Rfam assigns this 179-nucleotide RNA from Oryza barthii to the family "MIR807 microRNA precursor family".
[Rfam]
RNA sequence: AACCACACUAUCAAUGAAUGGAUUCACCCGUGAGAUGAUAUGGUUGUUUCAUAUAAGACGAGGACGUGACAUCCUAAUUAUCAGCCAUCGCACGAAAUUAAUUGGAUAUGCCACGUCAUUAUCCUAGAUGGAACAACCACAUCAUCACACGGGUGAAUUCAUUCAUCGAUAGUGUGGUU
Numbered sequence: 001a002a003c004c005a006c007a008c009u010a011u012c013a014a015u016g017a018a019u020g021g022a023u024u025c026a027c028c029c030g031u032g033a034g035a036u037g038a039u040a041u042g043g044u045u046g047u048u049u050c051a052u053a054u055a056a057g058a059c060g061a062g063g064a065c066g067u068g069a070c071a072u073c074c075u076a077a078u079u080a081u082c083a084g085c086c087a088u089c090g091c092a093c094g095a096a097a098u099u100a101a102u103u104g105g106a107u108a109u110g111c112c113a114c115g116u117c118a119u120u121a122u123c124c125u126a127g128a129u130g131g132a133a134c135a136a137c138c139a140c141a142u143c144a145u146c147a148c149a150c151g152g153g154u155g156a157a158u159u160c161a162u163u164c165a166u167c168g169a170u171a172g173u174g175u176g177g178u179u
Base pairs, nucleotide, nucleotide: 001179002178003177004176005175006174007173009171010170011169012168014166015165017163018162019161021159022158023157024156025155026154027153028152030150031149032148035145036144037143038142039141041139042138043137044136045135046134047133048132051129052128054126055125057123058122063117064116065115070110071109072108074105075104076103077102078101079100080099087098088097
Gene Ontology terms of the family: RISC complex and miRNA-mediated post-transcriptional gene silencing.